RNA sequence: UUGGCUGUGAUGAUUAUAAAAAUUCAUCGUUCUGAAUGCUAUAGCCAUGGCUUGACAGACUCAUUUACACCCAUAGAAUAUGAGCACC
Numbered sequence: 001u002u003g004g005c006u007g008u009g010a011u012g013a014u015u016a017u018a019a020a021a022a023u024u025c026a027u028c029g030u031u032c033u034g035a036a037u038g039c040u041a042u043a044g045c046c047a048u049g050g051c052u053u054g055a056c057a058g059a060c061u062c063a064u065u066u067a068c069a070c071c072c073a074u075a076g077a078a079u080a081u082g083a084g085c086a087c088c
Stems, first nucleotide, its partner, number of pairs: 003088002006086002
The record is an 88-nucleotide RNA sequence from Populus trichocarpa, which matches "Small nucleolar RNA snoR8a" in Rfam. The sequence is in the family's curated seed alignment. Its family is annotated with RNA processing and nucleolus in the Gene Ontology. On this family, see Brown et al., RNA 2001: "Multiple snoRNA gene clusters from Arabidopsis". The family's RNA type in Rfam is C/D-box small nucleolar RNA. The source organism's lineage runs through Eukaryota, Viridiplantae, Mesangiospermae, Salicaceae and Populus.